[Rfam]
RNA sequence: GAGACGCAUUCAUAUUUCAUUCGUAUAACCUCGCAGGGACGGUGCCCGUACACAGGGCGAGGGUUUCUACAGGAAGCCUUAACUUCCUAACUACGUAGCCAUGAAACGAAGCU
Numbered sequence: 001g002a003g004a005c006g007c008a009u010u011c012a013u014a015u016u017u018c019a020u021u022c023g024u025a026u027a028a029c030c031u032c033g034c035a036g037g038g039a040c041g042g043u044g045c046c047c048g049u050a051c052a053c054a055g056g057g058c059g060a061g062g063g064u065u066u067c068u069a070c071a072g073g074a075a076g077c078c079u080u081a082a083c084u085u086c087c088u089a090a091c092u093a094c095g096u097a098g099c100c101a102u103g104a105a106a107c108g109a110a111g112c113u
Base pairs, nucleotide, nucleotide: 020097022095023094024093025092029062030061031060032059033058034057071088072087073086074085075084076083
Background
The record is a 113-nucleotide RNA sequence from Paenibacillus sp. J31TS4, which matches "Purine riboswitch aptamer" in Rfam. It scores 38 bits against the family's covariance model. Rfam describes the family as follows. Riboswitches are metabolite binding domains within certain messenger RNAs that serve as precision sensors for their corresponding targets. Gene Ontology term of the family: purine nucleobase biosynthetic process. Pairs were carried over by alignment from the consensus structure, which is taken from published work.